[Rfam]
RNA sequence: UCACAUGCGGUGCCGGGGCAAUGAAAACUCUGAGUUCAAUCAGCAUCAGACUUUUUUUUGUCCUGGCUUCAUAUGGA
Numbered sequence: 001u002c003a004c005a006u007g008c009g010g011u012g013c014c015g016g017g018g019c020a021a022u023g024a025a026a027a028c029u030c031u032g033a034g035u036u037c038a039a040u041c042a043g044c045a046u047c048a049g050a051c052u053u054u055u056u057u058u059u060g061u062c063c064u065g066g067c068u069u070c071a072u073a074u075g076g077a
Base pairs, nucleotide, nucleotide: 001077002076004075005074006073007072009070010069012067013066014065015064016063017062019060020059021058024055025054026053027052029050030049031048032047033046034044035043
RNA: mir-4872 microRNA precursor family
Organism: Branchiostoma lanceolatum